A member of the RNA family "Purine riboswitch aptamer" from Pseudogracilibacillus auburnensis, 101 nucleotides long.
The family has 133 seed sequences and 4,097 matches in Rfam 15.1.
The organism belongs to Pseudogracilibacillus, within Bacteria.
The family's consensus secondary structure is taken from published work.

[Rfam]
RNA sequence: UGAAAAUAAUAAUAAGCUUUGCGUAUAAUCUAGGGGAUAGGCUUUAGAGUUUCUACCGGACUACCGUAAAUAGUCUGACUACGCAGAUAAUAGUGAUGUUC
Numbered sequence: 001u002g003a004a005a006a007u008a009a010u011a012a013u014a015a016g017c018u019u020u021g022c023g024u025a026u027a028a029u030c031u032a033g034g035g036g037a038u039a040g041g042c043u044u045u046a047g048a049g050u051u052u053c054u055a056c057c058g059g060a061c062u063a064c065c066g067u068a069a070a071u072a073g074u075c076u077g078a079c080u081a082c083g084c085a086g087a088u089a090a091u092a093g094u095g096a097u098g099u100u101c
Base pairs, nucleotide, nucleotide: 018087019086020085021084022083023082024081025080029048030047031046032045033044034043035042057077058076059075060074061073062072063071